The record is a 132-nucleotide RNA sequence from Ureibacillus manganicus, which matches "FMN riboswitch aptamer (RFN element)" in Rfam. A search with the family's covariance model found it, with a score of 112 bits.

[Rfam]
RNA sequence: AUUGUCCUUCGGGGUCGGGUGAAAUUCCCAAUCGACGGUGAUGAAGAAAUUCUAAGCCCGUGAGCUCAUUACGAGCAGGAUUUGGUGCGAAUCCAAAGCCGACAGUUAUAGUCUGGAUGGGAGAAGGAUGUA
Numbered sequence: 001a002u003u004g005u006c007c008u009u010c011g012g013g014g015u016c017g018g019g020u021g022a023a024a025u026u027c028c029c030a031a032u033c034g035a036c037g038g039u040g041a042u043g044a045a046g047a048a049a050u051u052c053u054a055a056g057c058c059c060g061u062g063a064g065c066u067c068a069u070u071a072c073g074a075g076c077a078g079g080a081u082u083u084g085g086u087g088c089g090a091a092u093c094c095a096a097a098g099c100c101g102a103c104a105g106u107u108a109u110a111g112u113c114u115g116g117a118u119g120g121g122a123g124a125a126g127g128a129u130g131u132a
Base pairs, nucleotide, nucleotide: 003130004129005128006127007126008125009124010123017029018028019027031112032111033101034100035061036060037059038058056099057098064076065075066074081097082096083095084094085093103115104114105113
NCBI's taxonomy places the organism under Bacteria, Bacillota, Caryophanaceae, Ureibacillus, Ureibacillus manganicus.
About the family: The RFN element is a highly conserved domain that is found frequently in the 5'-untranslated regions of prokaryotic mRNAs that encode for flavin mononucleotide (FMN) biosynthesis and transport proteins.